[Rfam]
RNA: RAGATH-10 RNA
RNA sequence: GAAGCCUCAUCUUGCUCACGCGCCAUCCGGGCGCCAAGAGCAGUGUUUUUCCUGAGGGGAAGGCGCAGGCACUCCGCCUGGAUGAGAAGAUAAG
Numbered sequence: 001g002a003a004g005c006c007u008c009a010u011c012u013u014g015c016u017c018a019c020g021c022g023c024c025a026u027c028c029g030g031g032c033g034c035c036a037a038g039a040g041c042a043g044u045g046u047u048u049u050u051c052c053u054g055a056g057g058g059g060a061a062g063g064c065g066c067a068g069g070c071a072c073u074c075c076g077c078c079u080g081g082a083u084g085a086g087a088a089g090a091u092a093a094g
Stems, first nucleotide, its partner, number of pairs: 006086007015040003020034005043066010067079004